RNA sequence: CUUACUACCCCUAACUUGAGCAUUGACUUGUCUUGUUCAAAUUUAGUAAGUGCUACUUGUUGGGGUAGUUUUA
Numbered sequence: 001c002u003u004a005c006u007a008c009c010c011c012u013a014a015c016u017u018g019a020g021c022a023u024u025g026a027c028u029u030g031u032c033u034u035g036u037u038c039a040a041a042u043u044u045a046g047u048a049a050g051u052g053c054u055a056c057u058u059g060u061u062g063g064g065g066u067a068g069u070u071u072u073a
Stems, first nucleotide, its partner, number of pairs: 004069008014060002018056001019054006026047003

Shown here is a 73-nucleotide RNA sequence from Merluccius polli, a member of the family "miR-430 microRNA precursor family". A reference for the family is Giraldez et al. (2005), "MicroRNAs regulate brain morphogenesis in zebrafish", Science. Taxonomically the source falls in Merluccius (Eukaryota, Vertebrata, Gnathostomata, Actinopteri).